[Rfam]
RNA sequence: GCCUGCAUUCGAAAGUGACCGCGGUCUCGCCCGUGGCCUGGUCAUCGAUAGUGCAGGGAGAGCAGCCCUGCCGAGAGCUUUCCCGUGUUUGGGGGGGCCGCCCCCCCCCCAGACCCUGCUGCUGUCGGACA
Numbered sequence: 001g002c003c004u005g006c007a008u009u010c011g012a013a014a015g016u017g018a019c020c021g022c023g024g025u026c027u028c029g030c031c032c033g034u035g036g037c038c039u040g041g042u043c044a045u046c047g048a049u050a051g052u053g054c055a056g057g058g059a060g061a062g063c064a065g066c067c068c069u070g071c072c073g074a075g076a077g078c079u080u081u082c083c084c085g086u087g088u089u090u091g092g093g094g095g096g097g098c099c100g101c102c103c104c105c106c107c108c109c110c111a112g113a114c115c116c117u118g119c120u121g122c123u124g125u126c127g128g129a130c131a
Stems, first nucleotide, its partner, number of pairs: 002057008015045007023038004068128001072127003076123003087114005092108005
RNA: Small nucleolar RNA SNORA71